[Rfam]
RNA sequence: CCAAUGUGAUUUCGUCACACAUUGAGUUAGCCUCAGAGCCUCAAAUUGUGGGUGACACCCCGACCAAAGAGAAUGAAAGGCACAAAGCAGAUCAAUAGCUAACUUUGAGAUGUUUGUCGUGUUGAGUAGCGGUAGAUCAGUUGCCGAGCUGAUC
Number, nucleotide and partner (000 for none) at each position: 001c000002c024003a023004a022005u021006g020007u019008g018009a000010u000011u000012u000013c000014g056015u055016c054017a053018c008019a007020c006021a005022u004023u003024g002025a000026g000027u102028u101029a100030g099031c098032c000033u000034c000035a000036g000037a000038g000039c000040c000041u000042c000043a000044a000045a000046u063047u062048g061049u000050g059051g058052g000053u017054g016055a015056c014057a000058c051059c050060c000061c048062g047063a046064c000065c000066a000067a000068a000069g000070a000071g000072a000073a000074u131075g130076a000077a000078a000079g123080g122081c121082a120083c119084a000085a115086a114087g113088c112089a111090g000091a000092u108093c107094a106095a105096u000097a104098g031099c030100u029101a028102a027103c000104u097105u095106u094107g093108a092109g000110a000111u089112g088113u087114u086115u085116g000117u000118c000119g083120u082121g081122u080123u079124g000125a000126g000127u000128a000129g000130c075131g074132g000133u000134a000135g154136a153137u152138c151139a150140g149141u148142u000143g000144c000145c000146g000147a000148g141149c140150u139151g138152a137153u136154c135
Record summary: Pseudomonadales-1 RNA: a 154-nucleotide RNA from Acinetobacter sp. P8-3-8. Lineage of the source: Bacteria > Pseudomonadati > Gammaproteobacteria > Moraxellaceae > Acinetobacter.